A member of the RNA family "Caenorhabditis snoRNA ceN126", 130 nucleotides long. Its family is annotated with nucleolus and RNA processing in the Gene Ontology. On this family, see Jia et al., BMC Mol Biol 2007: "Systematic identification of non-coding RNA 2,2,7-trimethylguanosine cap structures in Caenorhabditis elegans". A search with the family's covariance model found it, with a score of 117 bits.
RNA sequence: AAGCAGUUGUUCAGUAGCGCAGGCGAUCACCAUGCGCUUGUGCUUAAUCUUUGACUGCAAGACGAUUCAAGUCACAUUCAAUCGGUUUCGCUAUCUGUGUAGCAUUCUGUUCAAGAAUUGGCAUACAUUU
Numbered sequence: 001a002a003g004c005a006g007u008u009g010u011u012c013a014g015u016a017g018c019g020c021a022g023g024c025g026a027u028c029a030c031c032a033u034g035c036g037c038u039u040g041u042g043c044u045u046a047a048u049c050u051u052u053g054a055c056u057g058c059a060a061g062a063c064g065a066u067u068c069a070a071g072u073c074a075c076a077u078u079c080a081a082u083c084g085g086u087u088u089c090g091c092u093a094u095c096u097g098u099g100u101a102g103c104a105u106u107c108u109g110u111u112c113a114a115g116a117a118u119u120g121g122c123a124u125a126c127a128u129u130u
Base pairs, nucleotide, nucleotide: 003058004057005056006055007054008053009052016044017043018042019041020040021039022038023037024036025035071122072121073120074119076118077117078116079115081111083109084108085107090103091102092101093100094099